Rfam assigns this 133-nucleotide RNA sequence from Ficedula albicollis to the family "Small nucleolar RNA SNORA8". Rfam describes the family as follows. ACA8 is a member of the H/ACA class of snoRNA that guide the sites of modification of uridines to pseudouridines. Rfam links the family to the GO terms RNA processing and nucleolus. The source organism's lineage runs through Eukaryota, Eumetazoa, Deuterostomia, Australaves and Ficedula. Rfam 15.1 lists 1,490 matches to the family in 610 species. Pairs were carried over by alignment from the consensus structure, which was predicted with RNAfold.

[Rfam]
RNA sequence: GGUGUUGCAGUACCUGCACCCAGCAUCCUUCUGUGGGAUGUUCAAAAAGCAGUGCUACACCAGUGCAGCAUUUGGCAUCCUUGGUUUUCAUUCUGCUGUGUCUGUUAAAUGUGGGGUUUUUGCUGAAACAGUC
Numbered sequence: 001g002g003u004g005u006u007g008c009a010g011u012a013c014c015u016g017c018a019c020c021c022a023g024c025a026u027c028c029u030u031c032u033g034u035g036g037g038a039u040g041u042u043c044a045a046a047a048a049g050c051a052g053u054g055c056u057a058c059a060c061c062a063g064u065g066c067a068g069c070a071u072u073u074g075g076c077a078u079c080c081u082u083g084g085u086u087u088u089c090a091u092u093c094u095g096c097u098g099u100g101u102c103u104g105u106u107a108a109a110u111g112u113g114g115g116g117u118u119u120u121u122g123c124u125g126a127a128a129c130a131g132u133c
Stems, first nucleotide, its partner, number of pairs: 002055006014049001015046001016041003020037002022032002058122002062118003066113002074102005
The family's RNA type in Rfam is H/ACA-box small nucleolar RNA.